[Rfam]
The record is a 123-nucleotide RNA from Gossypium raimondii, which matches "MIR7504 microRNA precursor family" in Rfam. Rfam links the family to the GO terms miRNA-mediated post-transcriptional gene silencing and RISC complex.
RNA sequence: AAUAGGAGAAUGACAAAUCAGAUUUUUCCUCUUGAUUUUUAAUUUUUUUCUCCUAAAAAAUUCAAAUCCAACUAAAAAUGUUAAAAGUUCAGGAAGAAAAAUUUGAUUUGUCGUUCUCCUCUU
Numbered sequence: 001a002a003u004a005g006g007a008g009a010a011u012g013a014c015a016a017a018u019c020a021g022a023u024u025u026u027u028c029c030u031c032u033u034g035a036u037u038u039u040u041a042a043u044u045u046u047u048u049u050c051u052c053c054u055a056a057a058a059a060a061u062u063c064a065a066a067u068c069c070a071a072c073u074a075a076a077a078a079u080g081u082u083a084a085a086a087g088u089u090c091a092g093g094a095a096g097a098a099a100a101a102u103u104u105g106a107u108u109u110g111u112c113g114u115u116c117u118c119c120u121c122u123u
Stems, first nucleotide, its partner, number of pairs: 001123002004120024030094006036087004041082002045078004
The base pairs follow the family's consensus structure, which was predicted with RNAalifold.